This 87-nucleotide sequence from Gossypium schwendimanii belongs to the Rfam family "MIR7486 microRNA precursor family". Pairs were carried over by alignment from the consensus structure, which was predicted with RNAalifold. The match comes from Rfam's covariance-model search (69 bits).
RNA sequence: CAAAUCAACGCGAUUUGCUGACAUGGCAACAAAUCGCGCCCUCUAGUACGCGAUUUACUGCCACGUUAGCAAAUUGCGCUGACGUGG
Numbered sequence: 001c002a003a004a005u006c007a008a009c010g011c012g013a014u015u016u017g018c019u020g021a022c023a024u025g026g027c028a029a030c031a032a033a034u035c036g037c038g039c040c041c042u043c044u045a046g047u048a049c050g051c052g053a054u055u056u057a058c059u060g061c062c063a064c065g066u067u068a069g070c071a072a073a074u075u076g077c078g079c080u081g082a083c084g085u086g087g
Base pairs, nucleotide, nucleotide: 001086002085005082006081007080009078010077011076012075013074014073015072016071017070018069019068020067021066024063025062026061027060028059031056032055033054034053035052036051037050038049041046